[Rfam]
This 69-nucleotide RNA sequence from Theropithecus gelada belongs to the Rfam family "mir-1245 microRNA precursor family". Gene Ontology terms of the family: miRNA-mediated post-transcriptional gene silencing and RISC complex. The base pairs follow the family's consensus structure, which was predicted with RNAalifold.
RNA sequence: UUUAUGUGUAGGCCUUUAGCUCAUCUAAUGUUGAAUACUCUUUAGAUGAUCUAAAGGCCUACACAUAAA
Numbered sequence: 001u002u003u004a005u006g007u008g009u010a011g012g013c014c015u016u017u018a019g020c021u022c023a024u025c026u027a028a029u030g031u032u033g034a035a036u037a038c039u040c041u042u043u044a045g046a047u048g049a050u051c052u053a054a055a056g057g058c059c060u061a062c063a064c065a066u067a068a069a
Stems, first nucleotide, its partner, number of pairs: 002068006009061011021049004026044003030040001